[Rfam]
RNA sequence: GUAGUUGGAUUCGCAUCAAUCCAUAUGUAUUGGUGUGGAUUGGAGUGAAACUUAAACUAAAUCCCACCUCAAUCCACCCAACACAUGUGGAUUGAGGUAAAUCCGACA
Numbered sequence: 001g002u003a004g005u006u007g008g009a010u011u012c013g014c015a016u017c018a019a020u021c022c023a024u025a026u027g028u029a030u031u032g033g034u035g036u037g038g039a040u041u042g043g044a045g046u047g048a049a050a051c052u053u054a055a056a057c058u059a060a061a062u063c064c065c066a067c068c069u070c071a072a073u074c075c076a077c078c079c080a081a082c083a084c085a086u087g088u089g090g091a092u093u094g095a096g097g098u099a100a101a102u103c104c105g106a107c108a
Base pairs, nucleotide, nucleotide: 004107005106006105007104008103009102010101011100013098014097016095017094018093019092020091021090022089023088024087025086026085027084028083030081031080032079035077036076037075038074039073040072041071042070043069045067046066047065
Annotation:
Shown here is a 108-nucleotide RNA sequence from Miscanthus lutarioriparius, a member of the family "MIR5565 microRNA precursor family".